[Rfam]
RNA sequence: AAAGGAGGAAUCCGAAGGGAUAGCAUGAUCCAAAAUUAUGUAGAAGAAAGAAAAUGAAAAGAAAACUGUAAAUAUAUAAGUUGGGAUCAAUGCGAUCCCUUUGGAUGCUUCCUC
Numbered sequence: 001a002a003a004g005g006a007g008g009a010a011u012c013c014g015a016a017g018g019g020a021u022a023g024c025a026u027g028a029u030c031c032a033a034a035a036u037u038a039u040g041u042a043g044a045a046g047a048a049a050g051a052a053a054a055u056g057a058a059a060a061g062a063a064a065a066c067u068g069u070a071a072a073u074a075u076a077u078a079a080g081u082u083g084g085g086a087u088c089a090a091u092g093c094g095a096u097c098c099c100u101u102u103g104g105a106u107g108c109u110u111c112c113u114c
Stems, first nucleotide, its partner, number of pairs: 003113004008108001010106012023093003026089006035081001
This 114-nucleotide RNA from Cucumis melo belongs to the Rfam family "mir-393 microRNA precursor family". Rfam links the family to the GO terms RISC complex and miRNA-mediated post-transcriptional gene silencing. A search with the family's covariance model found it, with a score of 67 bits. The family has 27 seed sequences and 1,052 matches in Rfam 15.1.